The record is a 508-nucleotide RNA sequence from Kutzneria kofuensis, which matches "Saccharopolyspora sRNA 350" in Rfam. The base pairs follow the family's consensus structure, which was predicted with RNAfold. It is annotated as an antisense RNA.
RNA sequence: UUGGCGGUGAAGUUCCAGCUGGCGUCGGGGUCGACGAGCGCGUCGGCGCCGAAGUAUUCGCCGUCGGCGAGCGUGUCGAGCACGGACUCGUCGCCGUACUUGCCUUCGCCGACCUUGUUCACCUUGCCGUGCGCGAUCAGGUAGAUCCGGUCGGCGGCGUUGCCGGCCUCGGCGAUCACGUCGCCGGGCGCGAACUCGUGCUGGCGGAACCGGCCGGCCAGCGCCUCCAGCACCGCCAUCUCGUCGAAGCCGCGCAGCAGCGGGAGUUCGCCCAGCUCGGCGGGGAUCACCCGGACGUCGGCGCCGGUGUUGACGAACUCGAUCCGGCCGUCGCCGACGGUGUAGCUCAGCCGCCGGUUGACCCGGUAGACGCCGCCGUUGACCUGCACCCAGGGCAGCACCCGCAGCAGCCAGCGGGAGGUGAUGCCCUGCAUCUGCGGGACGGACUUGGUCGUGGUGGACAGGUUCCGCGCGGCGGCGGUGCCCAGGCUCAGCUGGGACUGCCCUU
Numbered sequence: 001u002u003g004g005c006g007g008u009g010a011a012g013u014u015c016c017a018g019c020u021g022g023c024g025u026c027g028g029g030g031u032c033g034a035c036g037a038g039c040g041c042g043u044c045g046g047c048g049c050c051g052a053a054g055u056a057u058u059c060g061c062c063g064u065c066g067g068c069g070a071g072c073g074u075g076u077c078g079a080g081c082a083c084g085g086a087c088u089c090g091u092c093g094c095c096g097u098a099c100u101u102g103c104c105u106u107c108g109c110c111g112a113c114c115u116u117g118u119u120c121a122c123c124u125u126g127c128c129g130u131g132c133g134c135g136a137u138c139a140g141g142u143a144g145a146u147c148c149g150g151u152c153g154g155c156g157g158c159g160u161u162g163c164c165g166g167c168c169u170c171g172g173c174g175a176u177c178a179c180g181u182c183g184c185c186g187g188g189c190g191c192g193a194a195c196u197c198g199u200g201c202u203g204g205c206g207g208a209a210c211c212g213g214c215c216g217g218c219c220a221g222c223g224c225c226u227c228c229a230g231c232a233c234c235g236c237c238a239u240c241u242c243g244u245c246g247a248a249g250c251c252g253c254g255c256a257g258c259a260g261c262g263g264g265a266g267u268u269c270g271c272c273c274a275g276c277u278c279g280g281c282g283g284g285g286a287u288c289a290c291c292c293g294g295a296c297g298u299c300g301g302c303g304c305c306g307g308u309g310u311u312g313a314c315g316a317a318c319u320c321g322a323u324c325c326g327g328c329c330g331u332c333g334c335c336g337a338c339g340g341u342g343u344a345g346c347u348c349a350g351c352c353g354c355c356g357g358u359u360g361a362c363c364c365g366g367u368a369g370a371c372g373c374c375g376c377c378g379u380u381g382a383c384c385u386g387c388a389c390c391c392a393g394g395g396c397a398g399c400a401c402c403c404g405c406a407g408c409a410g411c412c413a414g415c416g417g418g419a420g421g422u423g424a425u426g427c428c429c430u431g432c433a434u435c436u437g438c439g440g441g442a443c444g445g446a447c448u449u450g451g452u453c454g455u456g457g458u459g460g461a462c463a464g465g466u467u468c469c470g471c472g473c474g475g476c477g478g479c480g481g482u483g484c485c486c487a488g489g490c491u492c493a494g495c496u497g498g499g500a501c502u503g504c505c506c507u508u
Stems, first nucleotide, its partner, number of pairs: 006390004011385002014382002018328002021325002025322005031316002037311005045305008054233002057230002060227001063224002065111004075103001077102004082097004117222003122217002127212001129210002132206003136202001139199001141197001143196002150191001154189002159184002161178002166173002236294002241289001243287003250282001253279002256277003260271003329342004352378002355375003363369001391431007399423003403418001405416001407415001437476002440473001443470004447465004452460001480505003484499005
Record summary
A search with the family's covariance model found it, with a score of 309 bits. Taxonomically the source falls in Kutzneria (Bacteria, Actinomycetota, Actinomycetes, Pseudonocardiales).